[Rfam]
RNA: Group II catalytic intron D1-D4-3
Organism: Segatella copri
RNA sequence: UCCAUCGUGAGGUGAAAUCUGAAAGAAGCCGGAGGCAAACAUCUGACCUAACGAACAGAAACUUCAUACAAGGCAUAUGACCGUGGGUAAGGUUGCUACUCAAACCAAAGCCCUAUAGCUAUUCGGAACGGUCGGUGUAAAUGAAGUGGGUAUAAGAUGGAAAGACAAUGCU
Numbered sequence: 001u002c003c004a005u006c007g008u009g010a011g012g013u014g015a016a017a018u019c020u021g022a023a024a025g026a027a028g029c030c031g032g033a034g035g036c037a038a039a040c041a042u043c044u045g046a047c048c049u050a051a052c053g054a055a056c057a058g059a060a061a062c063u064u065c066a067u068a069c070a071a072g073g074c075a076u077a078u079g080a081c082c083g084u085g086g087g088u089a090a091g092g093u094u095g096c097u098a099c100u101c102a103a104a105c106c107a108a109a110g111c112c113c114u115a116u117a118g119c120u121a122u123u124c125g126g127a128a129c130g131g132u133c134g135g136u137g138u139a140a141a142u143g144a145a146g147u148g149g150g151u152a153u154a155a156g157a158u159g160g161a162a163a164g165a166c167a168a169u170g171c172u
Stems, first nucleotide, its partner, number of pairs: 001016001003014004028172001030170002036164001040159005046151005062146006073138003078134007085113004091106004